The family of this 61-nucleotide RNA sequence from Ziziphus jujuba is "Plastid-psbN 5UTR RNA". Rfam classes the family as a cis-regulatory element. The organism belongs to Ziziphus jujuba, within Eukaryota. Plastid psbN is a non-coding RNA (ncRNA) recognised in plastids. It was reported as a conserved 11 stem-loop in the prime untranslated region (5UTR) of psbN genes. It has been reported that the motif is retained in a subset of mature transcripts in barley, which can suggests a possible role in transcript alternative 5 prime processing. The family's consensus secondary structure was predicted with LocARNA. The match comes from Rfam's covariance-model search (79 bits).
[Rfam]
RNA sequence: UGUGAUACCCAUCAAAAGAGUAGUUCCCCACCCAGGAGUUACUUUACCAUAUUUUGAAUUC
Number, nucleotide and partner (000 for none) at each position: 001u000002g000003u000004g000005a000006u000007a000008c000009c000010c000011a000012u000013c000014a000015a000016a000017a045018g044019a043020g042021u041022a040023g039024u038025u037026c036027c035028c000029c000030a000031c000032c000033c000034a000035g027036g026037a025038g024039u023040u022041a021042c020043u019044u018045u017046a000047c000048c000049a000050u000051a000052u000053u000054u000055u000056g000057a000058a000059u000060u000061c000